A member of the RNA family "mir-9014 microRNA precursor family" from Equus asinus, 88 nucleotides long. Gene Ontology terms of the family: RISC complex and miRNA-mediated post-transcriptional gene silencing. A search with the family's covariance model found it, with a score of 79 bits.
RNA sequence: GGAGUAAUGGGGGGGGAUACCAAUCCAGCCUCAGGAAAAGAAACCUGCCACGGGAGUCUUGGAGAUCAGCGACUGACCUAAUGACUUA
Numbered sequence: 001g002g003a004g005u006a007a008u009g010g011g012g013g014g015g016g017a018u019a020c021c022a023a024u025c026c027a028g029c030c031u032c033a034g035g036a037a038a039a040g041a042a043a044c045c046u047g048c049c050a051c052g053g054g055a056g057u058c059u060u061g062g063a064g065a066u067c068a069g070c071g072a073c074u075g076a077c078c079u080a081a082u083g084a085c086u087u088a
Stems, first nucleotide, its partner, number of pairs: 002087003007082002010079003015074002018071001020069001023066003029062002038060004044054004